[Rfam]
RNA sequence: UUGCAAAUCUGGCCUAGUCCCGGGGCGCCCGGGAGCGGAGGACCCAAUCAGUAGGGGUUAAUUCCACGGUUUUUGUGGAAGGGAUGAGAAACUCUUUCGCCAUCCUACCCGUCAGCUAACUUCGUCGGCUAAAGCGAGGGAGGUC
Numbered sequence: 001u002u003g004c005a006a007a008u009c010u011g012g013c014c015u016a017g018u019c020c021c022g023g024g025g026c027g028c029c030c031g032g033g034a035g036c037g038g039a040g041g042a043c044c045c046a047a048u049c050a051g052u053a054g055g056g057g058u059u060a061a062u063u064c065c066a067c068g069g070u071u072u073u074u075g076u077g078g079a080a081g082g083g084a085u086g087a088g089a090a091a092c093u094c095u096u097u098c099g100c101c102a103u104c105c106u107a108c109c110c111g112u113c114a115g116c117u118a119a120c121u122u123c124g125u126c127g128g129c130u131a132a133a134g135c136g137a138g139g140g141a142g143g144u145c
Stems, first nucleotide, its partner, number of pairs: 011130004018034007035125006045054001055110003063079004082105004
The family of this 145-nucleotide RNA sequence from Brevibacillus borstelensis is "c-di-AMP riboswitch aptamer (ydaO/yuaA leader)". Taxonomically the source falls in Brevibacillus borstelensis (Bacteria, Bacillota, Caryophanales, Brevibacillus). A search with the family's covariance model found it, with a score of 71 bits.